The record is a 79-nucleotide sequence from Cnephaeus nilssonii, which matches "mir-9198 microRNA precursor family" in Rfam. The source organism's lineage runs through Eukaryota, Euteleostomi, Dipnotetrapodomorpha, Theria and Cnephaeus. A search with the family's covariance model found it, with a score of 96 bits. Its family is annotated with RISC complex and miRNA-mediated post-transcriptional gene silencing in the Gene Ontology.
[Rfam]
RNA sequence: GCUGCCACUCGCACCUGCUGCCAGUGCCCAGCGCCGGUCCUGAUCGCUUGGUGCUGUCAGUGGGUGCGAGUGGCGGUUC
Numbered sequence: 001g002c003u004g005c006c007a008c009u010c011g012c013a014c015c016u017g018c019u020g021c022c023a024g025u026g027c028c029c030a031g032c033g034c035c036g037g038u039c040c041u042g043a044u045c046g047c048u049u050g051g052u053g054c055u056g057u058c059a060g061u062g063g064g065u066g067c068g069a070g071u072g073g074c075g076g077u078u079c
Base pairs, nucleotide, nucleotide: 004074005073006072007071008070009069010068011067012066013065014064015063016062017061018060019059020058022056023055024054025053026052027051028050